The family of this 149-nucleotide RNA from Mannheimia haemolytica is "Group II catalytic intron D1-D4-7". Group II introns are found in rRNA, tRNA and mRNA of organelles in fungi, plants and protists, and also in mRNA in bacteria.

[Rfam]
RNA sequence: CCUGUUAUAUGGCUAACAGUAGUCUAGGGAUAGUGCGACACCGGUAACGGUGUGGUGCGGAGCUUCCUGACAAUGAACCCCUGAUGAAAAUCAGUCAAUGAAAUCGUGAGAGGACAUUGGGAGAAAGUGAAUAGCACACCUUCAAGGGG
Dot-bracket structure: .((((((......)))))).......((((..((((.((((((....)))))).))))......))))............(((((....)))))((((.....((....)).....))))...((.(((.......))).)).......

Description:
Its family is annotated with Group II intron splicing in the Gene Ontology. The organism belongs to Mannheimia haemolytica, within Bacteria. The literature on the family includes a 2003 paper in Crit Rev Biochem Mol Biol by Lehmann and Schmidt, "Group II introns: structure and catalytic versatility of large natural ribozymes".